[Rfam]
RNA: mir-276 microRNA precursor family
RNA sequence: CCUGGUGAUUUCCACUAGCGAGGUAUAGAGUUCCUACGUAAUACAUGCCUGUAGGAACUUCAUACCGUGCUCUUGGUUUUGCCAAU
Numbered sequence: 001c002c003u004g005g006u007g008a009u010u011u012c013c014a015c016u017a018g019c020g021a022g023g024u025a026u027a028g029a030g031u032u033c034c035u036a037c038g039u040a041a042u043a044c045a046u047g048c049c050u051g052u053a054g055g056a057a058c059u060u061c062a063u064a065c066c067g068u069g070c071u072c073u074u075g076g077u078u079u080u081g082c083c084a085a086u
Base pairs, nucleotide, nucleotide: 012076013075014074017071018070019069020068022066023065024064025063026062028060029059030058031057032056033055034054035053036052037051